[Rfam]
RNA sequence: GGGGGGUUUUUUUCCCCCCCCCCAAAAAAAAAACCCCCGGGGGCCCCCCCCCCCCCCCCCGGGGGGGGGGUUUUCCCCA
Dot-bracket structure: .((((((((((((.............))))))))))))(((((((((((((...........)))))))))))))....
The record is a 79-nucleotide RNA sequence, which matches "6C RNA" in Rfam. Rfam classes the family as a cis-regulatory element. It scores 50 bits against the family's covariance model. The family's consensus secondary structure is taken from published work.